The family of this 90-nucleotide RNA from Halanaerobium hydrogeniformans is "c-di-GMP-I riboswitch aptamer". Lineage of the source: Bacteria > Bacillati > Bacillota > Halanaerobiales > Halanaerobium. For this family Rfam cites "Identification of 22 candidate structured RNAs in bacteria using the CMfinder comparative genomics pipeline" (Weinberg et al., Nucleic Acids Res, 2007). Rfam 15.1 lists 5,092 matches to the family in 1,772 species.

[Rfam]
RNA sequence: UAAAUAUAAAAGCAAAAUAGUUGAAAGACUAUCACGCAAAAGCUUGAGUCUAAAGGGUUUUAAUAUUCUAUGAUCGUCAAGCCUGCCUCG
Numbered sequence: 001u002a003a004a005u006a007u008a009a010a011a012g013c014a015a016a017a018u019a020g021u022u023g024a025a026a027g028a029c030u031a032u033c034a035c036g037c038a039a040a041a042g043c044u045u046g047a048g049u050c051u052a053a054a055g056g057g058u059u060u061u062a063a064u065a066u067u068c069u070a071u072g073a074u075c076g077u078c079a080a081g082c083c084u085g086c087c088u089c090g
Base pairs, nucleotide, nucleotide: 012037013036017032018031019030020029021028022027040084042082043081045079046078047077048074049073050072055068056067057066058065